[Rfam]
c-di-AMP riboswitch aptamer (ydaO/yuaA leader): a 125-nucleotide RNA from Paenalicyclobacillus mengziensis. Lineage of the source: Bacteria > Bacillati > Bacillota > Caryophanales > Paenalicyclobacillus. Pairs were carried over by alignment from the consensus structure. The match comes from Rfam's covariance-model search (81 bits).

RNA sequence: ACGUAAUAAGGUCCGAAUCGAAAGAGCGGGGGACUCUUUACCGGGGGUGAAUCGCGGCGUGUGCUGCGUAGGGCGGCCUUCACCCGAACCCGACAACUAACCUCGUAGGACUUGAAGGAGAUGUG
Numbered sequence: 001a002c003g004u005a006a007u008a009a010g011g012u013c014c015g016a017a018u019c020g021a022a023a024g025a026g027c028g029g030g031g032g033a034c035u036c037u038u039u040a041c042c043g044g045g046g047g048u049g050a051a052u053c054g055c056g057g058c059g060u061g062u063g064c065u066g067c068g069u070a071g072g073g074c075g076g077c078c079u080u081c082a083c084c085c086g087a088a089c090c091c092g093a094c095a096a097c098u099a100a101c102c103u104c105g106u107a108g109g110a111c112u113u114g115a116a117g118g119a120g121a122u123g124u125g
Stems, first nucleotide, its partner, number of pairs: 011111004018025002026106006036044002045091003053068004071085003